[Rfam]
RNA sequence: GGCCUCCUGGUGCAUAACUGCAGGUUCUGCUCUUACACUGACUGUACAGCAAGAGGAGAAAAAGUGAAUCUACCCAAUAUACACUUAUGCCCAGGCCCUGUGCCUGGUCUGUAUUGUGAAUGGGAAGAUAUGG
Numbered sequence: 001g002g003c004c005u006c007c008u009g010g011u012g013c014a015u016a017a018c019u020g021c022a023g024g025u026u027c028u029g030c031u032c033u034u035a036c037a038c039u040g041a042c043u044g045u046a047c048a049g050c051a052a053g054a055g056g057a058g059a060a061a062a063a064g065u066g067a068a069u070c071u072a073c074c075c076a077a078u079a080u081a082c083a084c085u086u087a088u089g090c091c092c093a094g095g096c097c098c099u100g101u102g103c104c105u106g107g108u109c110u111g112u113a114u115u116g117u118g119a120a121u122g123g124g125a126a127g128a129u130a131u132g133g
Stems, first nucleotide, its partner, number of pairs: 004058005021044003028037002074124002077121002089109001091107006
Overview:
This 133-nucleotide sequence from Castor canadensis belongs to the Rfam family "Small nucleolar RNA SNORA51". A search with the family's covariance model found it, with a score of 102 bits. The source organism's lineage runs through Eukaryota, Opisthokonta, Mammalia, Eutheria and Castor. About the family: ACA51 is a member of the H/ACA class of snoRNA that guide the sites of modification of uridines to pseudouridines. Rfam links the family to the GO terms RNA processing and nucleolus. The family's RNA type in Rfam is H/ACA-box small nucleolar RNA. The family's consensus secondary structure was predicted with PFOLD.